[Rfam]
Rfam assigns this 74-nucleotide sequence from Geotrypetes seraphini to the family "Small nucleolar RNA SNORD56". The family's consensus secondary structure was predicted with PFOLD. It is annotated as a C/D-box small nucleolar RNA.
RNA sequence: CUGCAAUGAUGGGAAAUAUUUUUCGUCAACAGUAUUUCACCAAUAGUGAGUGUUGACAGUGUUUUGCUGAGCAA
Numbered sequence: 001c002u003g004c005a006a007u008g009a010u011g012g013g014a015a016a017u018a019u020u021u022u023u024c025g026u027c028a029a030c031a032g033u034a035u036u037u038c039a040c041c042a043a044u045a046g047u048g049a050g051u052g053u054u055g056a057c058a059g060u061g062u063u064u065u066g067c068u069g070a071g072c073a074a
Stems, first nucleotide, its partner, number of pairs: 002073003008027004

On this family, see Galardi et al., Mol Cell Biol 2002: "Purified box C/D snoRNPs are able to reproduce site-specific 2'-O-methylation of target RNA in vitro".